The record is a 66-nucleotide RNA sequence from Noviherbaspirillum pedocola, which matches "Xanthine riboswitch aptamer (NMT1 RNA)" in Rfam. A reference for the family is Yu and Breaker (2020), "A bacterial riboswitch class senses xanthine and uric acid to regulate genes associated with purine oxidation", RNA. The organism belongs to Noviherbaspirillum, within Bacteria. A search with the family's covariance model found it, with a score of 55 bits.

[Rfam]
RNA sequence: UGCACGAGUAGAAGCGGCUAGCAUCCGGCGCGCAACAUCAUGCGGAUGCGGGGCAUUGCUCCUGCG
Numbered sequence: 001u002g003c004a005c006g007a008g009u010a011g012a013a014g015c016g017g018c019u020a021g022c023a024u025c026c027g028g029c030g031c032g033c034a035a036c037a038u039c040a041u042g043c044g045g046a047u048g049c050g051g052g053g054c055a056u057u058g059c060u061c062c063u064g065c066g
Stems, first nucleotide, its partner, number of pairs: 006061005015051001018053002021049007
Dot-bracket structure: .....(((((....[..((.(((((((...............))))))).]))...))))).....